Shown here is a 148-nucleotide RNA sequence from Oryzicola mucosus, a member of the family "Alphaproteobacterial sRNA ar9". Rfam classes the family as a small RNA.
RNA sequence: AUAAUCGAGAAGACAGAGGAAAAUCUGUCUUUCCUACGCGGUCAAAGUCUUGGGAGGAUGCGAUCUAGGCGCGAUUAUUCGCUGCCGCCGGUUACCGGAAAGCAGGUCGACGCGUUUAAAUUGCAAGGCUUCGGCCUUGCAUUUUUUU
Numbered sequence: 001a002u003a004a005u006c007g008a009g010a011a012g013a014c015a016g017a018g019g020a021a022a023a024u025c026u027g028u029c030u031u032u033c034c035u036a037c038g039c040g041g042u043c044a045a046a047g048u049c050u051u052g053g054g055a056g057g058a059u060g061c062g063a064u065c066u067a068g069g070c071g072c073g074a075u076u077a078u079u080c081g082c083u084g085c086c087g088c089c090g091g092u093u094a095c096c097g098g099a100a101a102g103c104a105g106g107u108c109g110a111c112g113c114g115u116u117u118a119a120a121u122u123g124c125a126a127g128g129c130u131u132c133g134g135c136c137u138u139g140c141a142u143u144u145u146u147u148u
Base pairs, nucleotide, nucleotide: 003148004147011030012029013028014027015026016025037114038113039112040111047059048058049057050056062108063107064106065105066104068086069085070084071082072081073080088098089097090096122141123140124139125138126137127136128135129134